[Rfam]
RNA sequence: GGGGGCAGCGCAGGAUCCUGGGCUGUGUCCCCCGGAGCCCUGGGAUCUGGGGCCUGUACUGCUGGAAUCGCGCUCCCAGGGCCUCGCAGCCCCCU
Numbered sequence: 001g002g003g004g005g006c007a008g009c010g011c012a013g014g015a016u017c018c019u020g021g022g023c024u025g026u027g028u029c030c031c032c033c034g035g036a037g038c039c040c041u042g043g044g045a046u047c048u049g050g051g052g053c054c055u056g057u058a059c060u061g062c063u064g065g066a067a068u069c070g071c072g073c074u075c076c077c078a079g080g081g082c083c084u085c086g087c088a089g090c091c092c093c094c095u
Stems, first nucleotide, its partner, number of pairs: 001094005010087002012084003017080002020076003024072004028066002032064001033061003037057002042054001044053001046051001
A member of the RNA family "mir-8799 microRNA precursor family" from Vulpes vulpes, 95 nucleotides long.
The source organism's lineage runs through Eukaryota, Dipnotetrapodomorpha, Laurasiatheria, Canidae and Vulpes.
The match comes from Rfam's covariance-model search (63 bits).
Gene Ontology terms of the family: miRNA-mediated post-transcriptional gene silencing and RISC complex.